[Rfam]
The record is a 99-nucleotide RNA from Homoserinibacter sp. GY 40078, which matches "mraW RNA" in Rfam.
A search with the family's covariance model found it, with a score of 54 bits.
Rfam classes the family as a cis-regulatory element.

Nucleotides: 099
Base pairs, nucleotide, nucleotide: 010086011085012084013083014082015081018078019077021075022074023073024072025071027069028068029067030066031064032063035060036059037058038057039056040055041054042053
Number, partner (000 for none) and nucleotide at each position: 001000c002000u003000a004000g005000c006000g007000c008000c009000c010086c011085c012084g013083g014082g015081u016000g017000c018078g019077a020000c021075c022074c023073u024072c025071a026000g027069c028068c029067g030066c031064g032063c033000u034000c035060c036059c037058u038057g039056g040055c041054a042053c043000a044000c045000c046000u047000u048000c049000c050000c051000c052000g053042g054041u055040g056039c057038c058037a059036g060035g061000u062000c063032g064031c065000a066030g067029c068028g069027g070000a071025u072024g073023g074022g075021g076000a077019u078018c079000g080000g081015a082014c083013c084012c085011g086010g087000g088000g089000g090000a091000g092000c093000g094000g095000c096000c097000c098000c099000g

Description:
Rfam 15.1 lists 851 matches to the family in 821 species.